[Rfam]
RNA sequence: GUCUCAACAACCAAUCAGAAAACAUUGGCCUCAACUCUCUGUUUCCUACAGAGUUUAGGUCUCAAUAUUUCUGAGAGAGAAAGAAUCUUACUGAGGGGUCCAAGUUCGGUUGUUCAGACUAUCUUUACCAUGUUUGGAUGACCCUAUAAUGACUCAUACAUUU
Numbered sequence: 001g002u003c004u005c006a007a008c009a010a011c012c013a014a015u016c017a018g019a020a021a022a023c024a025u026u027g028g029c030c031u032c033a034a035c036u037c038u039c040u041g042u043u044u045c046c047u048a049c050a051g052a053g054u055u056u057a058g059g060u061c062u063c064a065a066u067a068u069u070u071c072u073g074a075g076a077g078a079g080a081a082a083g084a085a086u087c088u089u090a091c092u093g094a095g096g097g098g099u100c101c102a103a104g105u106u107c108g109g110u111u112g113u114u115c116a117g118a119c120u121a122u123c124u125u126u127a128c129c130a131u132g133u134u135u136g137g138a139u140g141a142c143c144c145u146a147u148a149a150u151g152a153c154u155c156a157u158a159c160a161u162u163u
Stems, first nucleotide, its partner, number of pairs: 015074005028060004033055005092156004098150002109142010
Dot-bracket structure: ..............(((((........((((.(((((.............))))).)))).........))))).................((((..((.........((((((((((..............))))))))))......))..)))).......
Background
Small nucleolar RNA snR161: a 163-nucleotide RNA sequence from Pichia kudriavzevii. For this family Rfam cites "Genome-wide searching for pseudouridylation guide snoRNAs: analysis of the Saccharomyces cerevisiae genome" (Schattner et al., Nucleic Acids Res, 2004). Gene Ontology terms of the family: RNA processing and nucleolus. Taxonomically the source falls in Pichia (Eukaryota, saccharomyceta, Pichiales, Pichiaceae). The family's RNA type in Rfam is H/ACA-box small nucleolar RNA.